[Rfam]
Rfam assigns this 209-nucleotide sequence from Pseudomonas kuykendallii to the family "PhrS".
RNA sequence: AUCCAAGCAUAACGCCCCAUCGCAGGAGGCCAUCCAUGUUUCUAGAUGAAGUGGUAAUCGCAGGUCUGCUUAUCGUCGGACUCUGUGUCGUUUUCUGCACCAGUUUCGGACUUUUCAUCUGGAAGGACUCGAAGAAGCAAAAAGCAAACUGAUCCUUCUUUAAAGAGCACGCAAGGCACUUGGGGCGACUUCGGUCGCCCGUUUUUUUG
Number, nucleotide and partner (000 for none) at each position: 001a000002u000003c000004c000005a000006a000007g000008c000009a000010u102011a000012a000013c000014g000015c000016c000017c000018c000019a000020u000021c000022g000023c000024a000025g000026g000027a000028g000029g000030c000031c000032a000033u000034c000035c000036a000037u000038g000039u000040u000041u000042c000043u000044a000045g000046a000047u000048g000049a000050a000051g061052u060053g059054g000055u000056a000057a000058u000059c053060g052061c051062a000063g000064g000065u000066c000067u000068g000069c000070u000071u000072a000073u000074c000075g000076u000077c000078g089079g088080a000081c000082u000083c000084u000085g000086u000087g000088u079089c078090g000091u000092u000093u000094u000095c000096u000097g000098c000099a000100c000101c000102a010103g000104u000105u000106u000107c000108g000109g000110a000111c000112u000113u000114u000115u000116c000117a000118u000119c000120u000121g000122g000123a000124a000125g000126g000127a000128c000129u000130c000131g000132a000133a000134g000135a000136a000137g000138c000139a000140a000141a000142a000143a000144g000145c000146a000147a000148a000149c000150u000151g000152a000153u000154c000155c000156u000157u000158c000159u000160u000161u000162a000163a000164a000165g000166a000167g177168c176169a000170c175171g000172c000173a000174a000175g170176g168177c167178a000179c000180u000181u000182g000183g200184g199185g198186c197187g196188a195189c194190u000191u000192c000193g000194g189195u188196c187197g186198c185199c184200c183201g000202u000203u000204u000205u000206u000207u000208u000209g000
A reference for the family is Livny et al. (2006), "Identification of 17 Pseudomonas aeruginosa sRNAs and prediction of sRNA-encoding genes in 10 diverse pathogens using the bioinformatic tool sRNAPredict2", Nucleic Acids Res. The source organism's lineage runs through Bacteria, Pseudomonadota, Gammaproteobacteria, Pseudomonadaceae and Pseudomonas. A search with the family's covariance model found it, with a score of 156 bits.